[Rfam]
RNA sequence: GGUAGUAGCAGCGAAGAGGGGUGGGAUACCCCUCCGCCGGAAAGGCCCAGGGUUCCAUGGUAAUGUUCAUCAGCCAUGGGUUAGCCGGUCCUAAGGUGGGGCCUAAUUGGCACCCACCGAAAGGGAAACGGGUUAAUAAUCCCGUGCCGUGGGGGUAGGUUUGCGGCAACGCAGGCCCCAUUCCCGACGUCUCAGGAUAGGGUGAGUGGGGCUGCCGCCCCAUUUAACCGUCGAAGACCGGGGAGUGCCGUCAUGGCGAGAACCGGUUGAAGACGGUAAUAGCCGGGCCUUGAGCCCGGUUCACCCGACUCCUGGGGCCCAUGAAAAGGGAAUGGGGAACGAGCCCCCACGACCGUACCGAGAACCGACACAGGUCGCCUGGGUGAGAAGCCCAAGGCGGGU
Numbered sequence: 001g002g003u004a005g006u007a008g009c010a011g012c013g014a015a016g017a018g019g020g021g022u023g024g025g026a027u028a029c030c031c032c033u034c035c036g037c038c039g040g041a042a043a044g045g046c047c048c049a050g051g052g053u054u055c056c057a058u059g060g061u062a063a064u065g066u067u068c069a070u071c072a073g074c075c076a077u078g079g080g081u082u083a084g085c086c087g088g089u090c091c092u093a094a095g096g097u098g099g100g101g102c103c104u105a106a107u108u109g110g111c112a113c114c115c116a117c118c119g120a121a122a123g124g125g126a127a128a129c130g131g132g133u134u135a136a137u138a139a140u141c142c143c144g145u146g147c148c149g150u151g152g153g154g155g156u157a158g159g160u161u162u163g164c165g166g167c168a169a170c171g172c173a174g175g176c177c178c179c180a181u182u183c184c185c186g187a188c189g190u191c192u193c194a195g196g197a198u199a200g201g202g203u204g205a206g207u208g209g210g211g212c213u214g215c216c217g218c219c220c221c222a223u224u225u226a227a228c229c230g231u232c233g234a235a236g237a238c239c240g241g242g243g244a245g246u247g248c249c250g251u252c253a254u255g256g257c258g259a260g261a262a263c264c265g266g267u268u269g270a271a272g273a274c275g276g277u278a279a280u281a282g283c284c285g286g287g288c289c290u291u292g293a294g295c296c297c298g299g300u301u302c303a304c305c306c307g308a309c310u311c312c313u314g315g316g317g318c319c320c321a322u323g324a325a326a327a328g329g330g331a332a333u334g335g336g337g338a339a340c341g342a343g344c345c346c347c348c349a350c351g352a353c354c355g356u357a358c359c360g361a362g363a364a365c366c367g368a369c370a371c372a373g374g375u376c377g378c379c380u381g382g383g384u385g386a387g388a389a390g391c392c393c394a395a396g397g398c399g400g401g402u
Stems, first nucleotide, its partner, number of pairs: 016034006035399004044379003050359002055079006064072002086355003090124002095118006101111003128145005148351008183330003189318009200306005205224006228276004237267005247257003289294001365374002380394004
Rfam assigns this 402-nucleotide part of an RNA from Caldivirga maquilingensis to the family "Archaeal large subunit ribosomal RNA". Pairs were carried over by alignment from the consensus structure, which is taken from published work. The organism belongs to Caldivirga maquilingensis, within Archaea.